[Rfam]
RNA sequence: CCAGUCUUCUAAGUAGUUGUGCCGCAGGUAAUCAACCAGUUAUCCUUUUACCUGCACACGACUGCUUCAGAGACUGA
Numbered sequence: 001c002c003a004g005u006c007u008u009c010u011a012a013g014u015a016g017u018u019g020u021g022c023c024g025c026a027g028g029u030a031a032u033c034a035a036c037c038a039g040u041u042a043u044c045c046u047u048u049u050a051c052c053u054g055c056a057c058a059c060g061a062c063u064g065c066u067u068c069a070g071a072g073a074c075u076g077a
Base pairs, nucleotide, nucleotide: 002076003075004074005073006072007071011067012066013065014064015063016062017061018060019059024055025054026053027052028051029050030049
RNA: mir-252 microRNA precursor family
Organism: Dinothrombium tinctorium